[Rfam]
RNA sequence: UGGCUGGCAGUUUAGCCCAGCGGUUCCUUCUCGUGAUCUCUGAUUUAUCAGACUAUCUCUCUCGGGAGUUCUAGACCCGCGGGCGCCACCCAGCCUUUUG
Numbered sequence: 001u002g003g004c005u006g007g008c009a010g011u012u013u014a015g016c017c018c019a020g021c022g023g024u025u026c027c028u029u030c031u032c033g034u035g036a037u038c039u040c041u042g043a044u045u046u047a048u049c050a051g052a053c054u055a056u057c058u059c060u061c062u063c064g065g066g067a068g069u070u071c072u073a074g075a076c077c078c079g080c081g082g083g084c085g086c087c088a089c090c091c092a093g094c095c096u097u098u099u100g
Base pairs, nucleotide, nucleotide: 002095003094004093005092006091007090015084016083017082018081020080021079022078023077028074029073
Notes
Shown here is a 100-nucleotide RNA sequence from Hymenochirus boettgeri, a member of the family "Vault RNA". This family of RNAs are found as part of the enigmatic vault ribonucleoprotein complex. The literature on the family includes a 2009 paper in Mol Biol Evol by Stadler et al., "Evolution of Vault RNAs". Pairs were carried over by alignment from the consensus structure, which is taken from published work. By type it is a non-coding RNA gene.